[Rfam]
RNA sequence: CAGGUUAUGAUGAUUGGCGCAGGGGUACGGACUUCAGUUGAUUCAUGGGAGCUGAACAUAUGUGUUUCUCCUUUGUCCUGCAUGUGGCAGGAUGCUGGUGAGCACUUACAGGAGACUGAUGCCUCAAUCUGAGCCUG
Numbered sequence: 001c002a003g004g005u006u007a008u009g010a011u012g013a014u015u016g017g018c019g020c021a022g023g024g025g026u027a028c029g030g031a032c033u034u035c036a037g038u039u040g041a042u043u044c045a046u047g048g049g050a051g052c053u054g055a056a057c058a059u060a061u062g063u064g065u066u067u068c069u070c071c072u073u074u075g076u077c078c079u080g081c082a083u084g085u086g087g088c089a090g091g092a093u094g095c096u097g098g099u100g101a102g103c104a105c106u107u108a109c110a111g112g113a114g115a116c117u118g119a120u121g122c123c124u125c126a127a128u129c130u131g132a133g134c135c136u137g
Base pairs, nucleotide, nucleotide: 001137002136003135004134005133
RNA: Small nucleolar RNA SNORD94
Organism: Felis catus